[Rfam]
RNA: Lysine riboswitch aptamer
RNA sequence: AAAACGUAUAGAGGCAGCGAUGCAUCAGAGUAAUCAGCGGAGUCGGCGGACUGUGAAGCUGGUGAAAGGUAACCAUCGCCGAAAGAGAGCUUUGGCAAAGGCUUGUCUUGGGGUUAUAGGGAAUACCUAUAACACUCCUUCAGCAAUGAAGAGGAGCUAUUAGUACU
Numbered sequence: 001a002a003a004a005c006g007u008a009u010a011g012a013g014g015c016a017g018c019g020a021u022g023c024a025u026c027a028g029a030g031u032a033a034u035c036a037g038c039g040g041a042g043u044c045g046g047c048g049g050a051c052u053g054u055g056a057a058g059c060u061g062g063u064g065a066a067a068g069g070u071a072a073c074c075a076u077c078g079c080c081g082a083a084a085g086a087g088a089g090c091u092u093u094g095g096c097a098a099a100g101g102c103u104u105g106u107c108u109u110g111g112g113g114u115u116a117u118a119g120g121g122a123a124u125a126c127c128u129a130u131a132a133c134a135c136u137c138c139u140u141c142a143g144c145a146a147u148g149a150a151g152a153g154g155a156g157c158u159a160u161u162a163g164u165a166c167u
Stems, first nucleotide, its partner, number of pairs: 008160004017079006025071001033063006083109004087104007110136002113133008138151005